[Rfam]
RNA sequence: AGCCGAUGAUGGUUUCAGUAUCAGAGUAGUUGACAGAAGUGAUUUCUGAAAACUCCGUACUGAGGCU
Numbered sequence: 001a002g003c004c005g006a007u008g009a010u011g012g013u014u015u016c017a018g019u020a021u022c023a024g025a026g027u028a029g030u031u032g033a034c035a036g037a038a039g040u041g042a043u044u045u046c047u048g049a050a051a052a053c054u055c056c057g058u059a060c061u062g063a064g065g066c067u
Base pairs, nucleotide, nucleotide: 001067002066003065004064
This 67-nucleotide RNA sequence from Zosterops lateralis belongs to the Rfam family "Small nucleolar RNA SNORD75". NCBI's taxonomy places the organism under Eukaryota, Deuterostomia, Chordata, Zosterops, Zosterops lateralis. The family's consensus secondary structure was predicted with RNAalifold. Gene Ontology terms of the family: RNA processing and nucleolus.